[Rfam]
Nucleotides: 492
Base pairs, nucleotide, nucleotide: 001431002430003429004428005427006426011024013022015020027167028166029165030164031163033161041120042119043118044117045116046115047114053108054106055105060102061101062100065097067095068094069093072092073091074090075089076088077087079085122148123147124146127143128142129141130140173197174196175195176194178192179191180190181189182188202213203212218393219392220391221390223388227384228383229382236381238380241377242376243375261355262354263353266351267350268349269348270347271346272345273344274343282339283338284337285336286335288312289311290310295305313317318333323330395421396420397419398418399417400416401415402414403413432487434484435483436482437481438480439479440478441477443476444475451471457466458465459464
Number, partner (000 for none) and nucleotide at each position: 001431u002430c003429u004428a005427c006426u007000a008000a009000a010000g011024u012000u013022u014000c015020c016000c017000u018000u019000a020015g021000a022013a023000u024011a025000g026000u027167a028166g029165u030164a031163a032000c033161g034000u035000a036000u037000u038000u039000a040000g041120u042119u043118u044117u045116a046115u047114a048000a049000g050000g051000u052000a053108a054106a055105g056000u057000a058000a059000a060102u061101a062100a063000u064000u065097a066000g067095a068094a069093g070000c071000c072092u073091a074090g075089g076088g077087g078000u079085u080000a081000a082000a083000a084000u085079a086000a087077c088076c089075u090074u091073u092072a093069c094068u095067u096000a097065u098000u099000c100062u101061u102060a103000a104000a105055c106054u107000u108053u109000a110000a111000a112000u113000a114047u115046a116045u117044a118043a119042g120041a121000a122148g123147u124146c125000c126000u127143u128142a129141u130140u131000a132000c133000u134000u135000a136000a137000u138000u139000a140130a141129a142128u143127a144000u145000a146124g147123a148122u149000a150000g151000u152000u153000a154000a155000a156000u157000a158000u159000a160000c161033u162000a163031u164030u165029a166028c167027u168000a169000g170000u171000a172000g173197g174196c175195u176194a177000u178192u179191u180190u181189u182188a183000g184000u185000a186000a187000g188182u189181a190180a191179a192178a193000c194176u195175a196174g197173u198000a199000a200000u201000a202213u203212a204000a205000g206000a207000u208000a209000a210000a211000c212203u213202a214000a215000a216000u217000a218393u219392a220391g221390g222000g223388u224000u225000a226000a227384g228383g229382u230000a231000c232000u233000a234000g235000a236381a237000u238380g239000u240000a241377u242376a243375c244000u245000u246000a247000u248000u249000a250000g251000a252000u253000a254000c255000u256000a257000u258000a259000a260000a261355a262354g263353g264000u265000a266351u267350u268349a269348g270347u271346u272345u273344a274343u275000c276000u277000a278000g279000a280000u281000a282339g283338u284337a285336g286335g287000a288312u289311a290310g291000u292000a293000g294000u295305u296000a297000u298000a299000g300000a301000a302000g303000u304000u305295a306000u307000a308000a309000u310290c311289u312288a313317c314000u315000a316000a317313g318333g319000a320000g321000u322000a323330u324000a325000u326000a327000a328000u329000a330323a331000c332000u333318u334000a335286c336285c337284u338283a339282c340000u341000u342000a343274a344273u345272a346271a347270a348269c349268u350267a351266g352000c353263c354262u355261u356000a357000a358000a359000a360000a361000u362000a363000a364000a365000u366000a367000g368000c369000g370000c371000u372000u373000a374000a375243g376242u377241a378000u379000a380238u381236u382229a383228c384227c385000u386000a387000u388223a389000c390221c391220c392219u393218a394000c395421u396420a397419c398418u399417a400416g401415g402414g403413u404000a405000a406000g407000a408000u409000u410000u411000a412000a413403g414402c415401c416400c417399u418398a419397g420396u421395a422000a423000g424000u425000a426006a427005g428004u429003a430002g431001g432487c433000a434484u435483a436482g437481a438480g439479g440478c441477u442000u443476a444475u445000a446000a447000u448000a449000a450000a451471g452000c453000u454000u455000u456000a457466g458465a459464g460000g461000u462000a463000u464459c465458u466457c467000u468000a469000g470000a471451u472000a473000g474000a475444a476443u477441a478440g479439c480438c481437u482436u483435u484434a485000g486000u487432g488000c489000a490000g491000a492000u

This 492-nucleotide part of an RNA from Plenodomus tracheiphilus belongs to the Rfam family "Eukaryotic large subunit ribosomal RNA". It scores 1744 bits against the family's covariance model. Its family is annotated with structural constituent of ribosome and ribosome in the Gene Ontology.